[Rfam]
RNA sequence: AAGCGAGGACGACCUCCCCAAUCGGAAAAACCAGCCGGGACGACCCGG
Numbered sequence: 001a002a003g004c005g006a007g008g009a010c011g012a013c014c015u016c017c018c019c020a021a022u023c024g025g026a027a028a029a030a031c032c033a034g035c036c037g038g039g040a041c042g043a044c045c046c047g048g
Base pairs, nucleotide, nucleotide: 003018005016006015007014008013035048036047037046038045039044
Dot-bracket structure: ..(.((((....)))).)................(((((....)))))
A member of the RNA family "Guanidine-II riboswitch aptamer (mini-ykkC)", 48 nucleotides long. It scores 40 bits against the family's covariance model. The base pairs follow the family's consensus structure, which is taken from published work.